Shown here is a 90-nucleotide RNA from Ideonella sp. MAG2, a member of the family "Burkholderia RNA 7 (anti-hemB)".
A reference for the family is Weinberg et al. (2007), "Identification of 22 candidate structured RNAs in bacteria using the CMfinder comparative genomics pipeline", Nucleic Acids Res.
Taxonomically the source falls in Ideonella (Bacteria, Pseudomonadati, Betaproteobacteria, Sphaerotilaceae).
A search with the family's covariance model found it, with a score of 64 bits.
By type it is a small RNA.
Rfam describes the family as follows. This RNA motif was identified by computational search in b-proteobacteria Burkholderia. Co-purified with Hfq, expression confirmed by Northern blot.

RNA sequence: UCCCUGCUUUUCCUCCCUGAGCAGGUGCCUUUACGUGAUGACAGCGUCAAGGCUUUUCAGCCCAGGCCCUUGUGGCCUGGGCUCUUUCUU
Numbered sequence: 001u002c003c004c005u006g007c008u009u010u011u012c013c014u015c016c017c018u019g020a021g022c023a024g025g026u027g028c029c030u031u032u033a034c035g036u037g038a039u040g041a042c043a044g045c046g047u048c049a050a051g052g053c054u055u056u057u058c059a060g061c062c063c064a065g066g067c068c069c070u071u072g073u074g075g076c077c078u079g080g081g082c083u084c085u086u087u088c089u090u
Stems, first nucleotide, its partner, number of pairs: 003025006027053005033047004060082008